RNA sequence: CUGAACUGAUGCAGGGAACCACCCUGAGUUCACUCAAUUAUUUGGUAAGUGAACACAGCUGGUGGUAUCUCAGCAACAGUUUCAGC
Numbered sequence: 001c002u003g004a005a006c007u008g009a010u011g012c013a014g015g016g017a018a019c020c021a022c023c024c025u026g027a028g029u030u031c032a033c034u035c036a037a038u039u040a041u042u043u044g045g046u047a048a049g050u051g052a053a054c055a056c057a058g059c060u061g062g063u064g065g066u067a068u069c070u071c072a073g074c075a076a077c078a079g080u081u082u083c084a085g086c
Stems, first nucleotide, its partner, number of pairs: 008077001010075003015071001016069002018066002021063003024058003028054001030052002